[Rfam]
RNA sequence: CCUCGGGAGCAUCAUAUCAAACGAUAGUAGGUACGCCGAGGUCGGAUGCGAUGAAUGAGGAA
Dot-bracket structure: (((((...(((((........(((.....((....))....))))))))......)))))..
Numbered sequence: 001c002c003u004c005g006g007g008a009g010c011a012u013c014a015u016a017u018c019a020a021a022c023g024a025u026a027g028u029a030g031g032u033a034c035g036c037c038g039a040g041g042u043c044g045g046a047u048g049c050g051a052u053g054a055a056u057g058a059g060g061a062a
Stems, first nucleotide, its partner, number of pairs: 001060005009049005022044003030037002
A member of the RNA family "RAGATH-18 RNA" from Sporomusa silvacetica, 62 nucleotides long. It scores 63 bits against the family's covariance model. From the family's description: Actinobacteria, Firmicutes, Fusobacteria, Thermotogae (1 example).